[Rfam]
Rfam assigns this 134-nucleotide RNA from Gossypium raimondii to the family "MIR7502 microRNA precursor family".
RNA sequence: UGUUGAAAAUUUUGUCCAUUUCUACAGUUAAAAAUUAGUGUAGCUAGCAAAAUAAUCAGAUAGUUAUACGUGGUAUCUCAUGCUAACAUGCAUAGAUUAGUUUUUAACGGUAGAAAUGGAUGAAAUUUAAAAAA
Numbered sequence: 001u002g003u004u005g006a007a008a009a010u011u012u013u014g015u016c017c018a019u020u021u022c023u024a025c026a027g028u029u030a031a032a033a034a035u036u037a038g039u040g041u042a043g044c045u046a047g048c049a050a051a052a053u054a055a056u057c058a059g060a061u062a063g064u065u066a067u068a069c070g071u072g073g074u075a076u077c078u079c080a081u082g083c084u085a086a087c088a089u090g091c092a093u094a095g096a097u098u099a100g101u102u103u104u105u106a107a108c109g110g111u112a113g114a115a116a117u118g119g120a121u122g123a124a125a126u127u128u129a130a131a132a133a134a
Base pairs, nucleotide, nucleotide: 003132004131007128008127009126010125011124012123013122014121015120016119018117019116020115021114022113023112024111025110028107029106030105031104032103033102
The organism belongs to Gossypium, within Eukaryota. Gene Ontology terms of the family: miRNA-mediated post-transcriptional gene silencing and RISC complex.